[Rfam]
Annotation: Exoribonuclease-resistant RNA (xrRNA) plant-infecting virus (class 3): a 48-nucleotide sequence from Umbravirus papaveri. Exoribonuclease-resistant RNA (xrRNA) plant-infecting virus (class 3) is a ncRNA that was reported in Plant viruses. The base pairs follow the family's consensus structure, which is taken from published work. The sequence is in the family's curated seed alignment. Rfam classes the family as a cis-regulatory element.

RNA sequence: ACCACAGCCAAGCAUUAAGUUGCAAGCGUUGGAGUGGCAGGCUUAACG
Numbered sequence: 001a002c003c004a005c006a007g008c009c010a011a012g013c014a015u016u017a018a019g020u021u022g023c024a025a026g027c028g029u030u031g032g033a034g035u036g037g038c039a040g041g042c043u044u045a046a047c048g
Stems, first nucleotide, its partner, number of pairs: 002036001008032002011030001012027002015046005
Dot-bracket structure: .[.....[[.[[[.(((((......]]..]]]...].....)))))..